This 108-nucleotide RNA sequence from Brachybacterium sp. UMB0905 belongs to the Rfam family "TPP riboswitch aptamer (THI element)".
[Rfam]
Nucleotides: 108
Stems, first nucleotide, its partner, number of pairs: 007095001009093002011059004017032005039053005064089004070083004
Number, partner (000 for none) and nucleotide at each position: 001000u002000a003000u004000u005000g006000c007095g008000u009093g010092c011059a012058c013057g014056g015000g016000a017032g018031u019030c020029c021028g022000g023000u024000g025000a026000a027000c028021c029020g030019g031018g032017c033000u034000g035000a036000g037000a038000g039053g040052g041051c042050g043049u044000u045000g046000u047000g048000a049043a050042c051041g052040c053039c054000g055000a056014c057013c058012g059011u060000a061000g062000a063000a064089c065088c066087u067086g068000a069000u070083c071082c072081g073080g074000a075000u076000c077000a078000u079000g080073c081072c082071g083070g084000c085000g086067c087066a088065g089064g090000g091000a092010g093009c094000u095007c096000c097000u098000c099000g100000c101000g102000g103000c104000g105000a106000u107000g108000g